RNA sequence: AGGUCGGGAGGCAGCCCUUGGGAAGGCUGCCAUGAAUAGACCUGAACCCCCAUUUCUCCAUGGGCGCGCGCCGAUGCCCGACGGCCCGCUU
Numbered sequence: 001a002g003g004u005c006g007g008g009a010g011g012c013a014g015c016c017c018u019u020g021g022g023a024a025g026g027c028u029g030c031c032a033u034g035a036a037u038a039g040a041c042c043u044g045a046a047c048c049c050c051c052a053u054u055u056c057u058c059c060a061u062g063g064g065c066g067c068g069c070g071c072c073g074a075u076g077c078c079c080g081a082c083g084g085c086c087c088g089c090u091u
Stems, first nucleotide, its partner, number of pairs: 001043005010031007064091001066089003070085004
The family of this 91-nucleotide RNA from Ketogulonicigenium vulgare is "Rhodo-rpoB RNA". Pairs were carried over by alignment from the consensus structure, which is taken from published work.